Annotation:
The family of this 600-nucleotide part of an RNA from Candidatus Caldarchaeum subterraneum is "Archaeal small subunit ribosomal RNA". The sequence is in the family's curated seed alignment. The literature on the family includes a 2002 paper in BMC Bioinformatics by Cannone et al., "The comparative RNA web (CRW) site: an online database of comparative sequence and structure information for ribosomal, intron, and other RNAs".
RNA sequence: UGGCGGGGGAGCACCACAAGGGGUGGACGUUGCGGCUUAAUUGGAGUCAACGCCGGAAACCUUACCGGGGGCGACAGCAGGAUGAUGGCCAGGUUAAAGGCCUUGCCGGACGAGCUGAGAGGAGGUGCAUGGCCGUCGCCAGUGCGUGCCGUGAGGUGUCCUGUUAAUUCAGGCAACGGACGAGACCCGCGCCUCCAGUUGCGACCGGGCCGAAAGGCGCCGAGCACUCUGGAGGGACUGCCCCGGAAACGGGGAGGAAGGAGCGGGCUACGGCAGGUCAGUAUGCCCCGAAUCCCCCGGGCCGCACGCGACGUUCAAUGGUGGGGACAGUGGGCUGCGACCCCGAAAGGGGAAGCCAAUCCCUAAACCCCACCUCAGUAGGGAUCGAGGGUUGCAACUCGCCCUCGUGAACGCGGAAUCCCUAGUAACCGCCCGUUACCACCGGGCGGUGAAUACGUCCCCGCUCCUUGCACACACUGCCCGUCGCUGCACCCGAGCUGGAACUGGGCGAGGGCCCGUCUCGUUGGCGGGUUCGAGCCCGGUUCUGGUGAGGGGGCAGAAGUCGUAACAAGGUGGCCGCACGGGAACGUGUGGCCGGAU
Numbered sequence: 001u002g003g004c005g006g007g008g009g010a011g012c013a014c015c016a017c018a019a020g021g022g023g024u025g026g027a028c029g030u031u032g033c034g035g036c037u038u039a040a041u042u043g044g045a046g047u048c049a050a051c052g053c054c055g056g057a058a059a060c061c062u063u064a065c066c067g068g069g070g071g072c073g074a075c076a077g078c079a080g081g082a083u084g085a086u087g088g089c090c091a092g093g094u095u096a097a098a099g100g101c102c103u104u105g106c107c108g109g110a111c112g113a114g115c116u117g118a119g120a121g122g123a124g125g126u127g128c129a130u131g132g133c134c135g136u137c138g139c140c141a142g143u144g145c146g147u148g149c150c151g152u153g154a155g156g157u158g159u160c161c162u163g164u165u166a167a168u169u170c171a172g173g174c175a176a177c178g179g180a181c182g183a184g185a186c187c188c189g190c191g192c193c194u195c196c197a198g199u200u201g202c203g204a205c206c207g208g209g210c211c212g213a214a215a216g217g218c219g220c221c222g223a224g225c226a227c228u229c230u231g232g233a234g235g236g237a238c239u240g241c242c243c244c245g246g247a248a249a250c251g252g253g254g255a256g257g258a259a260g261g262a263g264c265g266g267g268c269u270a271c272g273g274c275a276g277g278u279c280a281g282u283a284u285g286c287c288c289c290g291a292a293u294c295c296c297c298c299g300g301g302c303c304g305c306a307c308g309c310g311a312c313g314u315u316c317a318a319u320g321g322u323g324g325g326g327a328c329a330g331u332g333g334g335c336u337g338c339g340a341c342c343c344c345g346a347a348a349g350g351g352g353a354a355g356c357c358a359a360u361c362c363c364u365a366a367a368c369c370c371c372a373c374c375u376c377a378g379u380a381g382g383g384a385u386c387g388a389g390g391g392u393u394g395c396a397a398c399u400c401g402c403c404c405u406c407g408u409g410a411a412c413g414c415g416g417a418a419u420c421c422c423u424a425g426u427a428a429c430c431g432c433c434c435g436u437u438a439c440c441a442c443c444g445g446g447c448g449g450u451g452a453a454u455a456c457g458u459c460c461c462c463g464c465u466c467c468u469u470g471c472a473c474a475c476a477c478u479g480c481c482c483g484u485c486g487c488u489g490c491a492c493c494c495g496a497g498c499u500g501g502a503a504c505u506g507g508g509c510g511a512g513g514g515c516c517c518g519u520c521u522c523g524u525u526g527g528c529g530g531g532u533u534c535g536a537g538c539c540c541g542g543u544u545c546u547g548g549u550g551a552g553g554g555g556g557c558a559g560a561a562g563u564c565g566u567a568a569c570a571a572g573g574u575g576g577c578c579g580c581a582c583g584g585g586a587a588c589g590u591g592u593g594g595c596c597g598g599a600u
Stems, first nucleotide, its partner, number of pairs: 001474002003471003007468006016458002020422005025316010035305002041056004065300007075117004080111001087107003091103003121289002124287004130283002132278003135274004142181002145178003148157003160173004187266004192235007202224001206222003209218003238257002241254005320374007332363003337356002341352004381412001386407007428450008477572001479569001482565002485562001487559004492554003497549013512534009574597010